A member of the RNA family "Gammaprotebacteria rimP leader" from Lonepinella koalarum, 105 nucleotides long. The literature on the family includes a 2010 paper in Genome Biol by Naville and Gautheret, "Premature terminator analysis sheds light on a hidden world of bacterial transcriptional attenuation". The source organism's lineage runs through Bacteria, Pseudomonadati, Gammaproteobacteria, Pasteurellales and Lonepinella. Rfam links the family to the GO term regulation of gene expression. By type it is a cis-regulatory leader.
[Rfam]
RNA sequence: UGAGUAAGAAAGGAAAUAAAGGUUCAGUGAAACCCAAAUUUGGAAUUUGGGUUUUUUUGUACGUAAAAUUUGGAAAUUUACACUGGGCUUUUAAGCCCUUUUUUU
Numbered sequence: 001u002g003a004g005u006a007a008g009a010a011a012g013g014a015a016a017u018a019a020a021g022g023u024u025c026a027g028u029g030a031a032a033c034c035c036a037a038a039u040u041u042g043g044a045a046u047u048u049g050g051g052u053u054u055u056u057u058u059g060u061a062c063g064u065a066a067a068a069u070u071u072g073g074a075a076a077u078u079u080a081c082a083c084u085g086g087g088c089u090u091u092u093a094a095g096c097c098c099u100u101u102u103u104u105u
Stems, first nucleotide, its partner, number of pairs: 029055009085098004